RNA: S. aureus tsr24 small RNA
RNA sequence: AGUCUUUAUACAUAAAGCACCUCGUUAAUUUUGUUUAUUGGUAUUUAUUAAAUUAUACGAAAGGGCCUUAUUUUUCAAAGUAUUUUAAUAUAAAUUUACAUAUAAACACAAAGUAUUUUGGCGAAACUCUUGAGGGAACAGGACAAGCUGAAGACUACAGACUGAAGCUGUCACCUAAGAAAGCGAGCCAACAAUACGAAGUAUUUUAAAUAAAGAUGCCAGUAA
Numbered sequence: 001a002g003u004c005u006u007u008a009u010a011c012a013u014a015a016a017g018c019a020c021c022u023c024g025u026u027a028a029u030u031u032u033g034u035u036u037a038u039u040g041g042u043a044u045u046u047a048u049u050a051a052a053u054u055a056u057a058c059g060a061a062a063g064g065g066c067c068u069u070a071u072u073u074u075u076c077a078a079a080g081u082a083u084u085u086u087a088a089u090a091u092a093a094a095u096u097u098a099c100a101u102a103u104a105a106a107c108a109c110a111a112a113g114u115a116u117u118u119u120g121g122c123g124a125a126a127c128u129c130u131u132g133a134g135g136g137a138a139c140a141g142g143a144c145a146a147g148c149u150g151a152a153g154a155c156u157a158c159a160g161a162c163u164g165a166a167g168c169u170g171u172c173a174c175c176u177a178a179g180a181a182a183g184c185g186a187g188c189c190a191a192c193a194a195u196a197c198g199a200a201g202u203a204u205u206u207u208a209a210a211u212a213a214a215g216a217u218g219c220c221a222g223u224a225a
Base pairs, nucleotide, nucleotide: 001206002205023040024039026037027036028035041066042065044063045062046061048060049059050054081203082202083201084200085199086198091098092097101110103108113197114196115195116194117193118191119190120189121188122187128180129179130178131177133176134175135174138171139170141168146163147162148160149159